[Rfam]
RNA sequence: UGUAUCAAAUGAUGAAACAUCAGAACAAUCUUAGGACACCUUCUGACACAAUGCUGGUAGCACUGUGAGUGAGAAGGCAAUUCUUUGCUGAUGGUACU
Numbered sequence: 001u002g003u004a005u006c007a008a009a010u011g012a013u014g015a016a017a018c019a020u021c022a023g024a025a026c027a028a029u030c031u032u033a034g035g036a037c038a039c040c041u042u043c044u045g046a047c048a049c050a051a052u053g054c055u056g057g058u059a060g061c062a063c064u065g066u067g068a069g070u071g072a073g074a075a076g077g078c079a080a081u082u083c084u085u086u087g088c089u090g091a092u093g094g095u096a097c098u
Base pairs, nucleotide, nucleotide: 002097003096004095005094006093007092044050045049
A member of the RNA family "Small nucleolar RNA snoR31/Z110/Z27" from Zea mays, 98 nucleotides long. A reference for the family is Chen et al. (2003), "The high diversity of snoRNAs in plants: identification and comparative study of 120 snoRNA genes from Oryza sativa", Nucleic Acids Res. Taxonomically the source falls in Zea (Eukaryota, Streptophytina, Liliopsida, Andropogonodae). The family's consensus secondary structure was predicted with PFOLD. Rfam describes the family as follows. This family contains several related snoRNAs including R31, Z27 and Z110. By type it is a C/D-box small nucleolar RNA.